RNA sequence: GGGGCCGAUUUGGAUUCGACGCCGGUAUCAAACCCUGAGGUGCAUGUCGAGAGGGUAUAGACUCUCGUAAAUCAAUCUAUGCAACUUUAUAGUUGCCAACGACGAAAGCUACGCACUCGCUGCCUAAUUAGGCGCAGCGAGCGGUCGCCCCGGGAUGCCUGUAAACCGGUGUAUUGCGACUGUCAUAUAAAACAGGAUCGCUAGCCUAGUGCGCCUGACACGAAGCGGCUAAAAGUAUCGGGCUCGCCCAAACCACCCUGCCCGUCGGGCCGGUACGGGUUAACUUAAUAGACGACGCUAAACAUGUAGAUCCAAAGGCAGCGGACUGACGGACGGGGGUUCAAAUCCCCCCGGCUCCACCA
Number, nucleotide and partner (000 for none) at each position: 001g358002g357003g356004g355005c354006c353007g352008a000009u000010u000011u000012g000013g000014a000015u000016u000017c000018g000019a000020c331021g330022c000023c328024g327025g326026u325027a000028u323029c000030a000031a000032a000033c318034c317035c000036u315037g000038a000039g313040g312041u000042g000043c306044a305045u304046g303047u302048c067049g066050a065051g064052a063053g000054g000055g082056u081057a080058u079059a078060g077061a000062c000063u052064c051065u050066c049067g048068u000069a000070a000071a000072u000073c000074a000075a000076u000077c060078u059079a058080u057081g056082c055083a000084a000085c000086u000087u000088u000089a000090u000091a000092g000093u000094u000095g000096c000097c000098a000099a000100c000101g000102a000103c000104g000105a000106a000107a000108g000109c000110u000111a000112c000113g000114c000115a000116c141117u140118c139119g138120c137121u136122g135123c134124c000125u000126a000127a000128u000129u000130a000131g000132g000133c000134g123135c122136a121137g120138c119139g118140a117141g116142c182143g181144g180145u179146c178147g177148c171149c000150c169151c168152g167153g166154g000155a000156u000157g000158c196159c195160u194161g193162u192163a000164a000165a000166c153167c152168g151169g150170u000171g148172u000173a000174u000175u000176g000177c147178g146179a145180c144181u143182g142183u000184c000185a000186u000187a000188u000189a000190a000191a000192a162193c161194a160195g159196g158197a000198u000199c000200g000201c000202u231203a230204g229205c228206c227207u000208a000209g000210u223211g000212c000213g244214c000215c242216u241217g000218a000219c000220a000221c000222g000223a210224a000225g000226c000227g206228g205229c204230u203231a202232a000233a000234a000235g000236u000237a000238u000239c000240g000241g216242g215243c000244u213245c000246g280247c279248c278249c277250a000251a000252a274253c273254c272255a000256c269257c268258c267259u000260g298261c297262c000263c000264g293265u292266c291267g258268g257269g256270c000271c000272g254273g253274u252275a000276c000277g249278g248279g247280u246281u000282a000283a000284c000285u000286u000287a000288a000289u000290a000291g266292a265293c264294g000295a000296c000297g261298c260299u000300a000301a000302a047303c046304a045305u044306g043307u000308a000309g000310a000311u000312c040313c039314a000315a036316a000317g034318g033319c000320a000321g000322c000323g028324g000325a026326c025327u024328g023329a000330c021331g020332g000333a000334c000335g351336g350337g349338g348339g347340u000341u000342c000343a000344a000345a000346u000347c339348c338349c337350c336351c335352c007353g006354g005355c004356u003357c002358c001359a000360c000361c000362a000
Rfam assigns this 362-nucleotide RNA from Gammaproteobacteria bacterium LSUCC0112 to the family "transfer-messenger RNA".
About the family: Bacterial tmRNA, also known as 10Sa RNA or SsrA, is named for its dual tRNA and mRNA-like properties. Its role is to liberate the mRNA from a stalled ribosome. To accomplish this part of the tmRNA is used as a reading frame that ends in a translation stop signal. The broken mRNA is replaced in the ribosome by the tmRNA and translation of the tmRNA leads to addition of a proteolysis tag to the incomplete protein enabling recognition by a protease. Recently a number of permuted tmRNA genes have been found encoded in two parts. tmRNAs have been identified in eubacteria and some chloroplasts but are absent from archaeal and eukaryote nuclear genomes.
A search with the family's covariance model found it, with a score of 194 bits.
Rfam classes the family as a non-coding RNA gene.
Gene Ontology term of the family: RNA catabolic process.
Lineage of the source: Bacteria > Pseudomonadati > Pseudomonadota > Gammaproteobacteria.